Shown here is a 58-nucleotide RNA sequence from Chinchilla lanigera, a member of the family "Antizyme RNA frameshifting stimulation element". It scores 42 bits against the family's covariance model.

[Rfam]
RNA sequence: GCAUGCCCCUCACCCACCUCGGAAGACCCCAGCUGGCCGAGGAACAGUAAGCGGGAUC
Numbered sequence: 001g002c003a004u005g006c007c008c009c010u011c012a013c014c015c016a017c018c019u020c021g022g023a024a025g026a027c028c029c030c031a032g033c034u035g036g037c038c039g040a041g042g043a044a045c046a047g048u049a050a051g052c053g054g055g056a057u058c
Stems, first nucleotide, its partner, number of pairs: 008042004014036003018032001025058002028055003
Rfam links the family to the GO term translational frameshifting. NCBI's taxonomy places the organism under Eukaryota, Bilateria, Chordata, Glires, Chinchilla. The base pairs follow the family's consensus structure, which is taken from published work.